[Rfam]
RNA sequence: GGACUGUGACGAUAUCUGUGUUUUUCGUUGUAGUUGACCAAAUCGGCCUUGCUGACUAUUCUGCUAUAUCACCACCCAGGUUCUGAGUCC
Numbered sequence: 001g002g003a004c005u006g007u008g009a010c011g012a013u014a015u016c017u018g019u020g021u022u023u024u025u026c027g028u029u030g031u032a033g034u035u036g037a038c039c040a041a042a043u044c045g046g047c048c049u050u051g052c053u054g055a056c057u058a059u060u061c062u063g064c065u066a067u068a069u070c071a072c073c074a075c076c077c078a079g080g081u082u083c084u085g086a087g088u089c090c
Base pairs, nucleotide, nucleotide: 001090002089003088004087040050041049
This 90-nucleotide sequence from Phaseolus vulgaris belongs to the Rfam family "Small nucleolar RNA Z43". The family has 7 seed sequences and 859 matches in Rfam 15.1. Rfam classes the family as a C/D-box small nucleolar RNA.